Rfam assigns this 31-nucleotide sequence from Pantherophis guttatus to the family "Iron response element II".
The base pairs follow the family's consensus structure, which is taken from published work.
Rfam 15.1 lists 5,197 matches to the family in 722 species.
It scores 36 bits against the family's covariance model.
Taxonomically the source falls in Pantherophis (Eukaryota, Eumetazoa, Gnathostomata, Euteleostomi).
RNA sequence: UCAUUAUCGGGGGCAGGGUCUCCCAUAAUGU
Numbered sequence: 001u002c003a004u005u006a007u008c009g010g011g012g013g014c015a016g017g018g019u020c021u022c023c024c025a026u027a028a029u030g031u
Stems, first nucleotide, its partner, number of pairs: 002030006009024005014018001